[Rfam]
RNA sequence: AGCGAAGAAUAGUCAUUUGGCAAGAAGCAAUUUUUCGUCAAAGUUACAUUCUUCGAAUAUUAGGGCUUCUUCUCGUUGGUUUCAUUCAAUUUGAAUAGAAUCCUCUAAAAUGCAAGCAACAAAU
Numbered sequence: 001a002g003c004g005a006a007g008a009a010u011a012g013u014c015a016u017u018u019g020g021c022a023a024g025a026a027g028c029a030a031u032u033u034u035u036c037g038u039c040a041a042a043g044u045u046a047c048a049u050u051c052u053u054c055g056a057a058u059a060u061u062a063g064g065g066c067u068u069c070u071u072c073u074c075g076u077u078g079g080u081u082u083c084a085u086u087c088a089a090u091u092u093g094a095a096u097a098g099a100a101u102c103c104u105c106u107a108a109a110a111u112g113c114a115a116g117c118a119a120c121a122a123a124u
Stems, first nucleotide, its partner, number of pairs: 003055008012047002016042006023035001025033002065117004072112001076108004082098001084096005